[Rfam]
Shown here is a 271-nucleotide RNA sequence from Pipistrellus kuhlii, a member of the family "Mason-Pfizer monkey virus packaging signal". The family's consensus secondary structure was predicted with PFOLD.
RNA sequence: UGGCGCCCAACGUGGGGCCCCAGCACAAGAAAUUCAGUGAAGAAUGCUGUUCGAAGAGCCAGUGAAAAGGAAACUAAUAGGAGGACGAAAUUAAACGAGAGCCUGCCUUUUCUUCUGAUCCUCGGUAAGUGAACAGCGAUUAUGGGACAAGAAAUAAGUCAACAUGAAAUGUUCGUAGAAGGACUAAAAAAGAUUUUAAAGGCACGAGGGGUAAAGGUUUCUGUAAAACAAUUGUUAAAGUAUUUUAAUUAUAUUAAGGAUGUUUGUCCAU
Numbered sequence: 001u002g003g004c005g006c007c008c009a010a011c012g013u014g015g016g017g018c019c020c021c022a023g024c025a026c027a028a029g030a031a032a033u034u035c036a037g038u039g040a041a042g043a044a045u046g047c048u049g050u051u052c053g054a055a056g057a058g059c060c061a062g063u064g065a066a067a068a069g070g071a072a073a074c075u076a077a078u079a080g081g082a083g084g085a086c087g088a089a090a091u092u093a094a095a096c097g098a099g100a101g102c103c104u105g106c107c108u109u110u111u112c113u114u115c116u117g118a119u120c121c122u123c124g125g126u127a128a129g130u131g132a133a134c135a136g137c138g139a140u141u142a143u144g145g146g147a148c149a150a151g152a153a154a155u156a157a158g159u160c161a162a163c164a165u166g167a168a169a170u171g172u173u174c175g176u177a178g179a180a181g182g183a184c185u186a187a188a189a190a191a192g193a194u195u196u197u198a199a200a201g202g203c204a205c206g207a208g209g210g211g212u213a214a215a216g217g218u219u220u221c222u223g224u225a226a227a228a229c230a231a232u233u234g235u236u237a238a239a240g241u242a243u244u245u246u247a248a249u250u251a252u253a254u255u256a257a258g259g260a261u262g263u264u265u266g267u268c269c270a271u
Base pairs, nucleotide, nucleotide: 008029012026013025014024035049036048037047038046081123082122083121084120085119089116090114094110095109097107130149131148134146137144138143155198156197157196158194159193160192206246207245208244209243211241212240215233216232218230220228256271258269259268260267261266
Rfam links the family to the GO term viral genome packaging. NCBI's taxonomy places the organism under Eukaryota, Sarcopterygii, Amniota, Chiroptera, Pipistrellus.